This 252-nucleotide part of an RNA from Halorubrum lacusprofundi belongs to the Rfam family "Archaeal large subunit ribosomal RNA".
Taxonomically the source falls in Halorubrum lacusprofundi (Archaea, Halobacteria, Haloferacaceae, Halorubrum).
[Rfam]
RNA sequence: GGUACUUGACGUGAACAAACGUAUAGUACGAGAGGAACUACGUUUGGUCGCCACUGGUGUACCGGUUGUGUGAGAACGCAAUGCCGGGUAGCCACGCGACACGGGGUAAGAGCUGAACGCAUCUAAGCUCGAAACCCACAUGGAAAAGAAGUACCGAUGAGGUCACUCGUAGAAGACGAGUUCGAUAGACUCGGGAUGUACGCACCGAGGCAACGAGGUGUUGAGUCCACGAGCACUAACAGACCGAAGCCA
Numbered sequence: 001g002g003u004a005c006u007u008g009a010c011g012u013g014a015a016c017a018a019a020c021g022u023a024u025a026g027u028a029c030g031a032g033a034g035g036a037a038c039u040a041c042g043u044u045u046g047g048u049c050g051c052c053a054c055u056g057g058u059g060u061a062c063c064g065g066u067u068g069u070g071u072g073a074g075a076a077c078g079c080a081a082u083g084c085c086g087g088g089u090a091g092c093c094a095c096g097c098g099a100c101a102c103g104g105g106g107u108a109a110g111a112g113c114u115g116a117a118c119g120c121a122u123c124u125a126a127g128c129u130c131g132a133a134a135c136c137c138a139c140a141u142g143g144a145a146a147a148g149a150a151g152u153a154c155c156g157a158u159g160a161g162g163u164c165a166c167u168c169g170u171a172g173a174a175g176a177c178g179a180g181u182u183c184g185a186u187a188g189a190c191u192c193g194g195g196a197u198g199u200a201c202g203c204a205c206c207g208a209g210g211c212a213a214c215g216a217g218g219u220g221u222u223g224a225g226u227c228c229a230c231g232a233g234c235a236c237u238a239a240c241a242g243a244c245c246g247a248a249g250c251c252a
Stems, first nucleotide, its partner, number of pairs: 001155007010142004016046008047100005055094003062087005067080005103137003110130005161245004165181005186238003190233004194228003202221005209214001